[Rfam]
RNA sequence: UGCUGUUAGUGAUGACUUACUUAAAGUUAAAAAGAUGGGAAUCUCUCUGAAAGAGAAUGAAGAUUAAUUCAAAGCUGAAACAGUA
Numbered sequence: 001u002g003c004u005g006u007u008a009g010u011g012a013u014g015a016c017u018u019a020c021u022u023a024a025a026g027u028u029a030a031a032a033a034g035a036u037g038g039g040a041a042u043c044u045c046u047c048u049g050a051a052a053g054a055g056a057a058u059g060a061a062g063a064u065u066a067a068u069u070c071a072a073a074g075c076u077g078a079a080a081c082a083g084u085a
Stems, first nucleotide, its partner, number of pairs: 001085007
Small nucleolar RNA SNORD79: an 85-nucleotide RNA sequence from Jaculus jaculus. From the family's description: snoRNA U79 or Z22 is found in intron 7 of the gas5 gene in humans and is also present in mice. The family's consensus secondary structure was predicted with PFOLD. The organism belongs to Jaculus, within Eukaryota. Gene Ontology terms of the family: nucleolus and RNA processing.